Record summary: The record is a 228-nucleotide RNA sequence from Bagarius yarrelli, which matches "Small nucleolar RNA SNORA53" in Rfam. A search with the family's covariance model found it, with a score of 105 bits. From the family's description: The snoRNA ACA53 belongs to the H/ACA family of pseudouridylation guide snoRNAs. Rfam classes the family as an H/ACA-box small nucleolar RNA.
[Rfam]
RNA sequence: CACACGUUCCUUAGAUCCACCUCUGGGGAAUCCCUAGCUCUGCUGCUGCUACUCGUUUUAAGUGUUGCAGCAUCAGGGUGAAGGCUCCCAGCAGCUUUUCUGGCUGUACAGUUGGAGGUGCUUGAGUCAUUGGCGUGUGAGAGCAGUCUACCUGCUCCUUCAGCCAAGUUGCUGCCCUGGCUCCUUUUGUGGACUUCACCAGGGUAGACGAGCUGGAGGGCGGACACG
Dot-bracket structure: .(((((((.(((((...((((((((((((...(.(...((((((((..(.(((.......))))..))))...))))...).)..)))).((((((.....)))))).....)))))))).))))).....))))))).............(((((..(.((((.......(((((((((.(((......))).....)))))))))....)))).).))))).....
The base pairs follow the family's consensus structure, which was predicted with RNAalifold.